Shown here is a 206-nucleotide RNA sequence from Prauserella marina, a member of the family "Actinobacteria sRNA Ms_IGR-5". It scores 93 bits against the family's covariance model.
RNA sequence: ACACGAGAGAGGAGGUGGUCCGACGUUGAACAGCUAUAGGACUCGUGAGGUGGCUGUCCGCUGACGGACAGCACACGGGCCACCUGCGUUACGUGUGUCUGUCGGUGAAUACCAGGCAGUCACCGGCCCCUGGCGCUCCCGGAUGCCGGUCCGAUCCGGGCUCGAACGGCUGACGACGGUCGAGAGUCACGCCAGGGGCUCUUCAC
Dot-bracket structure: .............((((((.................................))))))(((((((.((((.(((..................))))))).))))))).................(((((((((((...((((((.........))))))..............................)))))))))))......
Numbered sequence: 001a002c003a004c005g006a007g008a009g010a011g012g013a014g015g016u017g018g019u020c021c022g023a024c025g026u027u028g029a030a031c032a033g034c035u036a037u038a039g040g041a042c043u044c045g046u047g048a049g050g051u052g053g054c055u056g057u058c059c060g061c062u063g064a065c066g067g068a069c070a071g072c073a074c075a076c077g078g079g080c081c082a083c084c085u086g087c088g089u090u091a092c093g094u095g096u097g098u099c100u101g102u103c104g105g106u107g108a109a110u111a112c113c114a115g116g117c118a119g120u121c122a123c124c125g126g127c128c129c130c131u132g133g134c135g136c137u138c139c140c141g142g143a144u145g146c147c148g149g150u151c152c153g154a155u156c157c158g159g160g161c162u163c164g165a166a167c168g169g170c171u172g173a174c175g176a177c178g179g180u181c182g183a184g185a186g187u188c189a190c191g192c193c194a195g196g197g198g199c200u201c202u203u204c205a206c
Stems, first nucleotide, its partner, number of pairs: 014058006059107007067099004072095003125200011139159006